[Rfam]
RNA: Protozoan signal recognition particle RNA
Organism: Theileria orientalis
RNA sequence: AUUGCUGUAACUUUGGGGGCACGAGUGCGGACAUGAGGGUCUGCGUCUGGCGCCGGAUCGAGCAAGCCUGUCUGCGAUGCGCUAGAGUCUGCCGAGGGCCUCGAUGUAAGUCGGAGCUCGCGGCGGGUGUGGCCCGGUGUAACGCUCCAGGCUGGCAACAGAGCAGAGAAUAGCCGGCGCUCUAGCGUCUGGCAGACGGCAGGUUUGCAAGGUCCGUA
Numbered sequence: 001a002u003u004g005c006u007g008u009a010a011c012u013u014u015g016g017g018g019g020c021a022c023g024a025g026u027g028c029g030g031a032c033a034u035g036a037g038g039g040u041c042u043g044c045g046u047c048u049g050g051c052g053c054c055g056g057a058u059c060g061a062g063c064a065a066g067c068c069u070g071u072c073u074g075c076g077a078u079g080c081g082c083u084a085g086a087g088u089c090u091g092c093c094g095a096g097g098g099c100c101u102c103g104a105u106g107u108a109a110g111u112c113g114g115a116g117c118u119c120g121c122g123g124c125g126g127g128u129g130u131g132g133c134c135c136g137g138u139g140u141a142a143c144g145c146u147c148c149a150g151g152c153u154g155g156c157a158a159c160a161g162a163g164c165a166g167a168g169a170a171u172a173g174c175c176g177g178c179g180c181u182c183u184a185g186c187g188u189c190u191g192g193c194a195g196a197c198g199g200c201a202g203g204u205u206u207g208c209a210a211g212g213u214c215c216g217u218a
Stems, first nucleotide, its partner, number of pairs: 011016001054216005064206008072195004077190001079188010089126006096119004101114005128132001134177005145168003152161003
Dot-bracket structure: ..........(....).....................................(((((.....((((((((((((.(.((((((((((((((((.((((.(((((....))))).)))).)))))).(...).(((((......(((....(((....)))....)))....))))).)))))))))).).))))...)))))))).....)))))..